The family of this 58-nucleotide RNA from Candidatus Schmidhempelia bombi is "Pseudomonas sRNA P26".
The family's RNA type in Rfam is non-coding RNA gene.
About the family: This small RNA (sRNA) was computationally identified in the genome of the opportunistic pathogen Pseudomonas aeruginosa and its expression verified by northern blot analysis. P26 is conserved across many Gammaproteobacteria species and appears to be consistently located between the DNA directed RNA polymerase (beta subunit) and 50S ribosomal protein L7/L12 genes.
Pairs were carried over by alignment from the consensus structure, which was predicted with RNAalifold.
NCBI's taxonomy places the organism under Bacteria, Pseudomonadati, Pseudomonadota, Candidatus Schmidhempelia, Candidatus Schmidhempelia bombi.
It scores 53 bits against the family's covariance model.
For this family Rfam cites "Identification of 17 Pseudomonas aeruginosa sRNAs and prediction of sRNA-encoding genes in 10 diverse pathogens using the bioinformatic tool sRNAPredict2" (Livny et al., Nucleic Acids Res, 2006).
[Rfam]
RNA sequence: GUAUUAAAAUUUGCAGCCUAAUUUGGGCUGAUGGCUGGUGGUUUUUUAUCACCAGCCU
Numbered sequence: 001g002u003a004u005u006a007a008a009a010u011u012u013g014c015a016g017c018c019u020a021a022u023u024u025g026g027g028c029u030g031a032u033g034g035c036u037g038g039u040g041g042u043u044u045u046u047u048a049u050c051a052c053c054a055g056c057c058u
Base pairs, nucleotide, nucleotide: 014030015029016028017027018026033057034056035055036054037053038052039051040050041049042048